[Rfam]
RNA sequence: GGUAAUUUCAAGCUUGACUUUAGAACGGGGAAACCAAAAUUGGGGCUUAUUUUUAUGAAAAGGUAAAAAUGGACAUCUCUCAGUCCUCGCCCGUCAGCUAACCUCGUAGGCAUUGAGAGGAGAUUGC
Dot-bracket structure: .....(((.............)))((((((....((....))(((.....((((..........))))..((((........))))...))).........))))))....................
Numbered sequence: 001g002g003u004a005a006u007u008u009c010a011a012g013c014u015u016g017a018c019u020u021u022a023g024a025a026c027g028g029g030g031a032a033a034c035c036a037a038a039a040u041u042g043g044g045g046c047u048u049a050u051u052u053u054u055a056u057g058a059a060a061a062g063g064u065a066a067a068a069a070u071g072g073a074c075a076u077c078u079c080u081c082a083g084u085c086c087u088c089g090c091c092c093g094u095c096a097g098c099u100a101a102c103c104u105c106g107u108a109g110g111c112a113u114u115g116a117g118a119g120g121a122g123a124u125u126g127c
Stems, first nucleotide, its partner, number of pairs: 006024003025107006035042002043092003051068004071086004